Rfam assigns this 102-nucleotide RNA from Cricetibacter osteomyelitidis to the family "Aggregatibacter sRNA 22". Taxonomically the source falls in Cricetibacter (Bacteria, Pseudomonadati, Pseudomonadota, Gammaproteobacteria). Rfam classes the family as a small RNA. Rfam 15.1 lists 101 matches to the family in 35 species. On this family, see Oogai et al., DNA Res 2017: "Small RNA repertoires and their intraspecies variation in Aggregatibacter actinomycetemcomitans".
RNA sequence: AUGCCGUCUGACAAAAGCCGAAGGCUUUUGAACGUCGGCUCUGCCGACAGCCCCGAAGGGGUGAGCAAGCGAACGAGUGAGCUUGCGAAUAACAUUGAUGUU
Dot-bracket structure: ...........((((((((...))))))))...((((((...)))))).(((((...)))))..((((((..(....)..))))))..((.(...).))...